[Rfam]
RNA sequence: CGGUCAAACUCUGGAGAGCGGCCGCGGCAUCAUGCCGGCGGCACACCGAAGGGGCAGGCGGCACACACACCGCUAUCUCUCAGGUAUCAAGGACAGAGGGGCAAGA
Number, nucleotide and partner (000 for none) at each position: 001c000002g000003g000004u000005c000006a000007a000008a000009c098010u097011c096012u095013g094014g000015a000016g000017a000018g000019c000020g000021g042022c041023c040024g039025c038026g000027g000028c000029a000030u000031c000032a000033u000034g000035c000036c000037g000038g025039c024040g023041g022042c021043a000044c000045a085046c084047c083048g081049a080050a000051g000052g079053g078054g077055c000056a000057g000058g073059c072060g071061g070062c000063a000064c000065a000066c000067a000068c000069a000070c061071c060072g059073c058074u000075a000076u000077c054078u053079c052080u049081c048082a000083g047084g046085u045086a000087u000088c000089a000090a000091g000092g000093a000094c013095a012096g011097a010098g009099g000100g000101g000102c000103a000104a000105g000106a000
RNA: Glycine riboswitch aptamer
Organism: Massilia sp. CF038